Source information: Rfam assigns this 100-nucleotide RNA from Sakesphorus luctuosus to the family "Small nucleolar RNA SNORD16". NCBI's taxonomy places the organism under Eukaryota, Bilateria, Euteleostomi, Dinosauria, Sakesphorus.
RNA sequence: UGCUGUGAUGAUGUAAUUUGCGUCCUAUGUGGUGCUCAGCGACAGUUGCCUGCUGUCGGUGUGCUGGCACUGCCAGCUGACGACCCCUGAGCUCUGAGCA
Numbered sequence: 001u002g003c004u005g006u007g008a009u010g011a012u013g014u015a016a017u018u019u020g021c022g023u024c025c026u027a028u029g030u031g032g033u034g035c036u037c038a039g040c041g042a043c044a045g046u047u048g049c050c051u052g053c054u055g056u057c058g059g060u061g062u063g064c065u066g067g068c069a070c071u072g073c074c075a076g077c078u079g080a081c082g083a084c085c086c087c088u089g090a091g092c093u094c095u096g097a098g099c100a
Base pairs, nucleotide, nucleotide: 001100002099003098021082022081023080024079030072031071032070033069034068039064040063041057042056043055044054045053
By type it is a C/D-box small nucleolar RNA. The base pairs follow the family's consensus structure, which was predicted with PFOLD. A search with the family's covariance model found it, with a score of 84 bits.